RNA sequence: UUCUUAUACAGAAGAGGCGAGAGAACAGGCUCUGAGACCCUCUGGCAACCGCCAAAAUGGAAAGGUGCCAAUUCCUGCCUGAAUCGAAAGAUUUGGGAACUAUAAAAA
Numbered sequence: 001u002u003c004u005u006a007u008a009c010a011g012a013a014g015a016g017g018c019g020a021g022a023g024a025a026c027a028g029g030c031u032c033u034g035a036g037a038c039c040c041u042c043u044g045g046c047a048a049c050c051g052c053c054a055a056a057a058u059g060g061a062a063a064g065g066u067g068c069c070a071a072u073u074c075c076u077g078c079c080u081g082a083a084u085c086g087a088a089a090g091a092u093u094u095g096g097g098a099a100c101u102a103u104a105a106a107a108a
Stems, first nucleotide, its partner, number of pairs: 001108002004105005013043005021032003026077004044069004049065002052060003078097006

Notes:
This 108-nucleotide sequence from Solitalea longa belongs to the Rfam family "SAM riboswitch aptamer (S box leader)". The organism belongs to Solitalea, within Bacteria. The SAM riboswitch is found upstream of a number of genes which code for proteins involved in methionine or cysteine biosynthesis in Gram-positive bacteria. The family is grouped with related families in Rfam's "SAM clan".